[Rfam]
Shown here is an 82-nucleotide sequence from Flexivirga oryzae, a member of the family "6C RNA".
RNA sequence: CGCAUCGGGUUCCUAACCCCCCCCCGGGGAUUCGGUGCACACAGAAGGCCCCCGCCCACCCCCCCGGCGGGGGCCUUCUUAU
Numbered sequence: 001c002g003c004a005u006c007g008g009g010u011u012c013c014u015a016a017c018c019c020c021c022c023c024c025c026g027g028g029g030a031u032u033c034g035g036u037g038c039a040c041a042c043a044g045a046a047g048g049c050c051c052c053c054g055c056c057c058a059c060c061c062c063c064c065c066g067g068c069g070g071g072g073g074c075c076u077u078c079u080u081a082u
Base pairs, nucleotide, nucleotide: 002038003037004036005035006034007033008032009031010030011029012028013027044078045077046076047075048074049073050072051071052070053069054068055067056066
A search with the family's covariance model found it, with a score of 48 bits. For this family Rfam cites "Identification of 22 candidate structured RNAs in bacteria using the CMfinder comparative genomics pipeline" (Weinberg et al., Nucleic Acids Res, 2007).